[Rfam]
Plant signal recognition particle RNA: a 304-nucleotide RNA from Brassica carinata.
The family has 63 seed sequences and 4,988 matches in Rfam 15.1.
Its Rfam clan is "SRP clan".
A search with the family's covariance model found it, with a score of 249 bits.
Its family is annotated with SRP-dependent cotranslational protein targeting to membrane, signal sequence recognition and signal recognition particle, endoplasmic reticulum targeting in the Gene Ontology.
Taxonomically the source falls in Brassica (Eukaryota, Euphyllophyta, Magnoliopsida, Mesangiospermae).

RNA sequence: GUCGAGCUCAGUAACAAGGGCUUGUGACCCAUGUGGGGACAAUAAGUUGGUUGAACACUGGCCCGAACCACAGGUCGGAUCUGCUGUUGGCACUCUUCUGGGCUGCCCAGUCCAAGCCGAGAGUGGUCCGUGUGUGUCGAGCGAAGGCUUGGCUUAGGCGGUUCCUAAAGUGGAGGGCAAUGCGUGAGGCUGGUUUCACAGAGCAGCGAUCACCUCCCUCUUUCGGCAGUGGUCGGAUAACAGCUCGACGCCACUCAGAUCCAUCAUGGCCUGCUGGCUCGUACCCAGCUGAACAACCAAAUUU
Numbered sequence: 001g002u003c004g005a006g007c008u009c010a011g012u013a014a015c016a017a018g019g020g021c022u023u024g025u026g027a028c029c030c031a032u033g034u035g036g037g038g039a040c041a042a043u044a045a046g047u048u049g050g051u052u053g054a055a056c057a058c059u060g061g062c063c064c065g066a067a068c069c070a071c072a073g074g075u076c077g078g079a080u081c082u083g084c085u086g087u088u089g090g091c092a093c094u095c096u097u098c099u100g101g102g103c104u105g106c107c108c109a110g111u112c113c114a115a116g117c118c119g120a121g122a123g124u125g126g127u128c129c130g131u132g133u134g135u136g137u138c139g140a141g142c143g144a145a146g147g148c149u150u151g152g153c154u155u156a157g158g159c160g161g162u163u164c165c166u167a168a169a170g171u172g173g174a175g176g177g178c179a180a181u182g183c184g185u186g187a188g189g190c191u192g193g194u195u196u197c198a199c200a201g202a203g204c205a206g207c208g209a210u211c212a213c214c215u216c217c218c219u220c221u222u223u224c225g226g227c228a229g230u231g232g233u234c235g236g237a238u239a240a241c242a243g244c245u246c247g248a249c250g251c252c253a254c255u256c257a258g259a260u261c262c263a264u265c266a267u268g269g270c271c272u273g274c275u276g277g278c279u280c281g282u283a284c285c286c287a288g289c290u291g292a293a294c295a296a297c298c299a300a301a302u303u304u
Stems, first nucleotide, its partner, number of pairs: 001040003004023006028037003044303002047300007056291002058288003061284001064281003068277002071273006077262007086254001088253003099247007107236002110234001112232003116227008125164002128161004133156002136153007165170001172217005183208003190201003